Annotation: Shown here is a 207-nucleotide sequence from Miscanthus lutarioriparius, a member of the family "MIR6217 microRNA precursor family".

RNA sequence: AUAACUUAUUCUGUGGUCAUUUUGAGUUACGAAAGUUACUAUGCUAAUUUACGAGACUACAGUAACUCCUUACUAAGUGAUUUACUAUAACAUUAUGAUAAAUAUCACCGUGAGUUGUAGUAACACGAGUAUCGUAAAUACAUAUUCAUGUUAUCGUAAAUUGGUACAAACAUUAUCAUAAAUCAAGGUGGCUAUAGAAUAAGUUAU
Dot-bracket structure: (((((((((((((((((((((((...(((.((.(((...(.(((((((((((..((..((((.(.....((((...(((.(((((((((((.(..................).)))))))))....)).))).)))).......).).)))..))))))))))))).)...))).)).)))...)))))))))))))))))))))))
Taxonomically the source falls in Miscanthus (Eukaryota, Magnoliopsida, Petrosaviidae, Andropogonodae).